[Rfam]
RNA sequence: AUUGAAUUAGCAACAACACUUGGGAUUGAAGUGCUAAAUUGAAAAUGGCACUUUUCUGGCACUUUUUGAGCAAAAAAAGGUGAUAAAAUGUUAUUAGUGAGAAGUGAAGAUGAUUACAAAAAUAAAAUCUUAUAUUGAGUCUGCGCUCCACUUCUCAUUAAGUAUUAAAAGUGAUUUGUUAAAUCUUGAGCAAUAUUUUUAUGUUUGUUAAAAUAAAAGCGAACAAAAAUAAAAAUAUUGGAGGGAUUUUAAUGAAUGAAAAAGAAAAAAUUGAUUUUG
Numbered sequence: 001a002u003u004g005a006a007u008u009a010g011c012a013a014c015a016a017c018a019c020u021u022g023g024g025a026u027u028g029a030a031g032u033g034c035u036a037a038a039u040u041g042a043a044a045a046u047g048g049c050a051c052u053u054u055u056c057u058g059g060c061a062c063u064u065u066u067u068g069a070g071c072a073a074a075a076a077a078a079g080g081u082g083a084u085a086a087a088a089u090g091u092u093a094u095u096a097g098u099g100a101g102a103a104g105u106g107a108a109g110a111u112g113a114u115u116a117c118a119a120a121a122a123u124a125a126a127a128u129c130u131u132a133u134a135u136u137g138a139g140u141c142u143g144c145g146c147u148c149c150a151c152u153u154c155u156c157a158u159u160a161a162g163u164a165u166u167a168a169a170a171g172u173g174a175u176u177u178g179u180u181a182a183a184u185c186u187u188g189a190g191c192a193a194u195a196u197u198u199u200u201a202u203g204u205u206u207g208u209u210a211a212a213a214u215a216a217a218a219g220c221g222a223a224c225a226a227a228a229a230u231a232a233a234a235a236u237a238u239u240g241g242a243g244g245g246a247u248u249u250u251a252a253u254g255a256a257u258g259a260a261a262a263a264g265a266a267a268a269a270a271u272u273g274a275u276u277u278u279g
Stems, first nucleotide, its partner, number of pairs: 028065009041056005046050001097158008120136002122133003137148004172225002175189002178186001192209004249274005257266001
The record is a 279-nucleotide RNA sequence from Listeria innocua, which matches "Listeria sRNA rliG" in Rfam. Lineage of the source: Bacteria > Bacillota > Bacilli > Caryophanales > Listeria. For this family Rfam cites "The Listeria transcriptional landscape from saprophytism to virulence" (Toledo-Arana et al., Nature, 2009).